The family of this 84-nucleotide RNA sequence is "pemK RNA". Rfam classes the family as a cis-regulatory element.
RNA sequence: CUAACGAUACUUCUGUCCAGCCACAGCUUCUUCACGCAAUGGGGGCAGCUCGGAGCGAUCCUCGGAGGGGUUCAAGUCCCAUGG
Dot-bracket structure: ...........(((((((........................))))))(((.(((.....))).)))(((.......))))...